[Rfam]
RNA: MIR807 microRNA precursor family
RNA sequence: AAUUACACUAUCGAUGAAUGGAUUCACCAGUGAGAUGACGUGGUUGUUCCAUCUAGGAUGAUGACGUGACAUAUCCUAUUAAUUUCGUGCGAUGGCUGAUAAUAGGAUGCCAUGACCUCGUCCUAUGUAAAACACCACGUCAUCCCGCAGGUGAGUCCAUUCAUUGAUAGUGUAGUU
Numbered sequence: 001a002a003u004u005a006c007a008c009u010a011u012c013g014a015u016g017a018a019u020g021g022a023u024u025c026a027c028c029a030g031u032g033a034g035a036u037g038a039c040g041u042g043g044u045u046g047u048u049c050c051a052u053c054u055a056g057g058a059u060g061a062u063g064a065c066g067u068g069a070c071a072u073a074u075c076c077u078a079u080u081a082a083u084u085u086c087g088u089g090c091g092a093u094g095g096c097u098g099a100u101a102a103u104a105g106g107a108u109g110c111c112a113u114g115a116c117c118u119c120g121u122c123c124u125a126u127g128u129a130a131a132a133c134a135c136c137a138c139g140u141c142a143u144c145c146c147g148c149a150g151g152u153g154a155g156u157c158c159a160u161u162c163a164u165u166g167a168u169a170g171u172g173u174a175g176u177u
Stems, first nucleotide, its partner, number of pairs: 001177007009169007017161003021157008030148003035143005041137003045134004051128002054125002057122002063116001065114001070109002074107008088099001